Shown here is a 179-nucleotide RNA sequence from a Lachnospiraceae bacterium, a member of the family "Lysine riboswitch aptamer". The organism belongs to Lachnospiraceae, within Bacteria.
RNA sequence: AAAGACGAUAGAGGUUGCGCUUUUCAUCAGUAAUCUGUCGGAUGCAGCAGCUGCAGAUGAAGACAGAGGAAAGGGAACGGCGCCGAAAGAGGUUGAGUGCUGUGCUCAGCAGACUUGGGCAUACGGGAAAUACCUGUAUGACUGUCACUUCCGAAAUGAAGUGGGGCGCUAUCAAAAUC
Numbered sequence: 001a002a003a004g005a006c007g008a009u010a011g012a013g014g015u016u017g018c019g020c021u022u023u024u025c026a027u028c029a030g031u032a033a034u035c036u037g038u039c040g041g042a043u044g045c046a047g048c049a050g051c052u053g054c055a056g057a058u059g060a061a062g063a064c065a066g067a068g069g070a071a072a073g074g075g076a077a078c079g080g081c082g083c084c085g086a087a088a089g090a091g092g093u094u095g096a097g098u099g100c101u102g103u104g105c106u107c108a109g110c111a112g113a114c115u116u117g118g119g120c121a122u123a124c125g126g127g128a129a130a131u132a133c134c135u136g137u138a139u140g141a142c143u144g145u146c147a148c149u150u151c152c153g154a155a156a157u158g159a160a161g162u163g164g165g166g167c168g169c170u171a172u173c174a175a176a177a178u179c
Stems, first nucleotide, its partner, number of pairs: 007173005017083005023077003034067006087116003092110007117143002120140008145164007